A member of the RNA family "mir-989 microRNA precursor family" from Leptidea sinapis, 82 nucleotides long. Taxonomically the source falls in Leptidea (Eukaryota, Opisthokonta, Eumetazoa, Pancrustacea). The base pairs follow the family's consensus structure, which was predicted with RNAalifold. The match comes from Rfam's covariance-model search (63 bits). Rfam 15.1 lists 57 matches to the family in 54 species.

RNA sequence: CAGGAUUGAAAUCGCCAUUACCUCACAGUCACGUAGUCUAUGAGUACAACGUGUGAUGUGACGUAGUGGAAGUUUCGGUUUG
Numbered sequence: 001c002a003g004g005a006u007u008g009a010a011a012u013c014g015c016c017a018u019u020a021c022c023u024c025a026c027a028g029u030c031a032c033g034u035a036g037u038c039u040a041u042g043a044g045u046a047c048a049a050c051g052u053g054u055g056a057u058g059u060g061a062c063g064u065a066g067u068g069g070a071a072g073u074u075u076c077g078g079u080u081u082g
Stems, first nucleotide, its partner, number of pairs: 003081008015069007023061004029056004034051001
Dot-bracket structure: ..((((((((....(((((((.((((..((((.(................).)))).)))).)))))))....)))))))).